[Rfam]
Shown here is a 201-nucleotide RNA from Vibrio galatheae, a member of the family "GcvB RNA". A reference for the family is Jin et al. (2009), "Small noncoding RNA GcvB is a novel regulator of acid resistance in Escherichia coli", BMC Genomics. Rfam classes the family as a non-coding RNA gene. Lineage of the source: Bacteria > Pseudomonadota > Vibrionales > Vibrionaceae > Vibrio. From the family's description: The gcvB gene encodes a small untranslated RNA involved in expression of the dipeptide and oligopeptide transport systems in Escherichia coli. Included several unknown homologues in alignment (Bateman A pers obs).
RNA sequence: CAAUAAGAAGUCAGAACGGCUUGAUUUUCCUUUAAAUCAAUUGACCACUUAUUGCGAUGUUGUGUUUGCAAACUCGUAUUUCGAGUUCGGUAGGUUUCUACCAGUUUGGUUUCGAUGAGAAACGAAACAUCUACUUCCUGUAUUUAUUUUGACCUGUCUGUCAAAUUUUUUAGCACCGCCUAUAUGGCGGUGUUUUUUUAU
Numbered sequence: 001c002a003a004u005a006a007g008a009a010g011u012c013a014g015a016a017c018g019g020c021u022u023g024a025u026u027u028u029c030c031u032u033u034a035a036a037u038c039a040a041u042u043g044a045c046c047a048c049u050u051a052u053u054g055c056g057a058u059g060u061u062g063u064g065u066u067u068g069c070a071a072a073c074u075c076g077u078a079u080u081u082c083g084a085g086u087u088c089g090g091u092a093g094g095u096u097u098c099u100a101c102c103a104g105u106u107u108g109g110u111u112u113c114g115a116u117g118a119g120a121a122a123c124g125a126a127a128c129a130u131c132u133a134c135u136u137c138c139u140g141u142a143u144u145u146a147u148u149u150u151g152a153c154c155u156g157u158c159u160g161u162c163a164a165a166u167u168u169u170u171u172a173g174c175a176c177c178g179c180c181u182a183u184a185u186g187g188c189g190g191u192g193u194u195u196u197u198u199u200a201u
Stems, first nucleotide, its partner, number of pairs: 010045003015042002021040007072086005089102005142167001144165002172194008